[Rfam]
RNA: uup RNA
RNA sequence: CAACUCUUUGCUCCCUACAACUUAUUUUGAUGAAGUGUUGUAUGGAGC
Numbered sequence: 001c002a003a004c005u006c007u008u009u010g011c012u013c014c015c016u017a018c019a020a021c022u023u024a025u026u027u028u029g030a031u032g033a034a035g036u037g038u039u040g041u042a043u044g045g046a047g048c
Stems, first nucleotide, its partner, number of pairs: 011047004017041003